Shown here is a 170-nucleotide RNA from Thermanaeromonas sp. C210, a member of the family "Group II catalytic intron D1-D4-3". The match comes from Rfam's covariance-model search (144 bits). Taxonomically the source falls in Thermanaeromonas (Bacteria, Bacillati, Neomoorellales, Neomoorellaceae).
RNA sequence: CCCAUCGCGAGGUGGGAUCCGAAGGAAGCCGGAGGCAAAGCCACGGCCCGAUGAACAAGAACCCCAUAGGAGGCUAGACCGUUCGGAUGAGCUGGCGAAACACAGCGAAAUCCCAGGCUGCCAAGGGAUGGUAGAGUAUAUGGGGCGGGCGCGGGGCGAAGGUUAACGCU
Numbered sequence: 001c002c003c004a005u006c007g008c009g010a011g012g013u014g015g016g017a018u019c020c021g022a023a024g025g026a027a028g029c030c031g032g033a034g035g036c037a038a039a040g041c042c043a044c045g046g047c048c049c050g051a052u053g054a055a056c057a058a059g060a061a062c063c064c065c066a067u068a069g070g071a072g073g074c075u076a077g078a079c080c081g082u083u084c085g086g087a088u089g090a091g092c093u094g095g096c097g098a099a100a101c102a103c104a105g106c107g108a109a110a111u112c113c114c115a116g117g118c119u120g121c122c123a124a125g126g127g128a129u130g131g132u133a134g135a136g137u138a139u140a141u142g143g144g145g146c147g148g149g150c151g152c153g154g155g156g157c158g159a160a161g162g163u164u165a166a167c168g169c170u
Base pairs, nucleotide, nucleotide: 001016002015003014004013005012006011028170030168031167035163036162040157041156042155044153045152046150047149048148049147050146062145063144064143065142066141067140073137074136075135078132079131080130081129082128083127085113086112087111088110091106092105093104094103